[Rfam]
Nucleotides: 117
Base pairs, nucleotide, nucleotide: 002022003021004020005019006018007017008016009015010014028042030040031039032038033037057117058116059115060114061113062112063111064110065109066108067107068106069105074103079102080101081100084097085096086095087094
Number, partner (000 for none) and nucleotide at each position: 001000u002022a003021c004020c005019a006018c007017g008016g009015g010014c011000u012000a013000u014010g015009c016008c017007c018006g019005u020004g021003g022002u023000u024000c025000u026000g027000a028042a029000a030040a031039g032038c033037u034000u035000a036000u037033a038032g039031c040030u041000a042028u043000g044000a045000g046000u047000a048000g049000a050000a051000a052000a053000a054000a055000u056000u057117u058116u059115c060114c061113u062112c063111c064110u065109u066108u067107g068106a069105u070000a071000g072000a073000a074103u075000a076000a077000a078000u079102g080101a081100u082000a083000a084097c085096g086095g087094u088000c089000u090000g091000c092000c093000a094087a095086c096085c097084g098000a099000g100081a101080u102079c103074a104000a105069a106068u107067c108066a109065a110064a111063g112062g113061a114060g115059g116058a117057a
The family of this 117-nucleotide RNA from Caloramator mitchellensis is "STnc490 Hfq binding RNA". The organism belongs to Caloramator, within Bacteria.